[Rfam]
Nucleotides: 109
Base pairs, nucleotide, nucleotide: 004108005107007105008104009103010102012100013099014098016096017095018094019093020092022090023089024088025087026086028084029083030082031081035077036076037075038074039073040072041071042070043069045067046066
Number, partner (000 for none) and nucleotide at each position: 001000g002000u003000a004108a005107u006000u007105g008104g009103a010102u011000u012100c013099g014098c015000a016096u017095c018094a019093a020092u021000c022090u023089a024088u025087a026086u027000a028084u029083g030082u031081u032000a033000g034000g035077g036076u037075g038074a039073a040072u041071u042070g043069a044000a045067g046066u047000a048000g049000a050000a051000c052000u053000u054000a055000a056000a057000c058000u059000a060000a061000a062000u063000u064000u065000c066046a067045c068000c069043u070042c071041a072040a073039u074038u075037c076036a077035c078000u079000c080000c081031a082030a083029u084028a085000c086026a087025u088024g089023u090022g091000c092020a093019u094018u095017g096016a097000g098014g099013u100012g101000u102010a103009u104008u105007c106000c107005a108004u109000a
Source information: Rfam assigns this 109-nucleotide RNA sequence from Miscanthus lutarioriparius to the family "MIR5565 microRNA precursor family". The base pairs follow the family's consensus structure, which was predicted with RNAalifold. The family has 7 seed sequences and 3,346 matches in Rfam 15.1.